[Rfam]
RNA sequence: AUCCGGAGCGCGUCAGCCGGGCGCGGCGGUAGGAAGGGAACAGCACUAUUUCCCCGGCUUCUUGUGCUGGCCAACGAAAUGGCACGCGAGCCCUUGUCCCGCCCGCUCC
Number, nucleotide and partner (000 for none) at each position: 001a000002u000003c000004c000005g000006g108007a107008g106009c105010g000011c023012g022013u021014c020015a000016g000017c000018c000019g000020g014021g013022c012023g011024c000025g103026g102027c101028g100029g099030u000031a000032g000033g000034a000035a094036g093037g092038g091039a000040a000041c069042a068043g067044c066045a065046c064047u000048a000049u000050u000051u000052c000053c000054c000055c000056g000057g000058c000059u000060u000061c000062u000063u000064g046065u045066g044067c043068u042069g041070g083071c082072c081073a000074a000075c000076g000077a000078a000079a000080u000081g072082g071083c070084a000085c000086g000087c000088g000089a000090g000091c038092c037093c036094u035095u000096g000097u000098c000099c029100c028101g027102c026103c025104c000105g009106c008107u007108c006109c000